A member of the RNA family "Small nucleolar RNA snoR53Y" from Brassica carinata, 82 nucleotides long. It scores 44 bits against the family's covariance model. A reference for the family is Brown et al. (2001), "Multiple snoRNA gene clusters from Arabidopsis", RNA. NCBI's taxonomy places the organism under Eukaryota, Streptophytina, Mesangiospermae, malvids, Brassica. Rfam 15.1 lists 513 matches to the family in 230 species. Gene Ontology terms of the family: nucleolus and RNA processing. It is annotated as a C/D-box small nucleolar RNA. The family is grouped with related families in Rfam's "snoR53 clan".
RNA sequence: GUUCCCUGUGAUGAUUUAAAAAAUGCUAAUGUAUACCUGAUAUAGUUUUGUAUAUGAUUUGUAAUUUAUUUCUGAGGGAACA
Numbered sequence: 001g002u003u004c005c006c007u008g009u010g011a012u013g014a015u016u017u018a019a020a021a022a023a024u025g026c027u028a029a030u031g032u033a034u035a036c037c038u039g040a041u042a043u044a045g046u047u048u049u050g051u052a053u054a055u056g057a058u059u060u061g062u063a064a065u066u067u068a069u070u071u072c073u074g075a076g077g078g079a080a081c082a
Stems, first nucleotide, its partner, number of pairs: 001081007
Dot-bracket structure: (((((((...................................................................))))))).